Source information: This 40-nucleotide RNA from Heterocephalus glaber belongs to the Rfam family "Prion pseudoknot".

RNA sequence: CCGUGGUGGAGGCUGGGGACAGCCCCAUGAUGGUGGCUAG
Numbered sequence: 001c002c003g004u005g006g007u008g009g010a011g012g013c014u015g016g017g018g019a020c021a022g023c024c025c026c027a028u029g030a031u032g033g034u035g036g037c038u039a040g
Stems, first nucleotide, its partner, number of pairs: 002029005

The match comes from Rfam's covariance-model search (52 bits). It is annotated as a cis-regulatory element. The base pairs follow the family's consensus structure, which is taken from published work. Rfam links the family to the GO term translation. The literature on the family includes a 2001 paper in Nucleic Acids Res by Barrette et al., "Pseudoknots in prion protein mRNAs confirmed by comparative sequence analysis and pattern searching". This family represents a predicted pseudoknot structure found in prion protein mRNA. It has been suggested that the family has a possible effect in prion protein translation.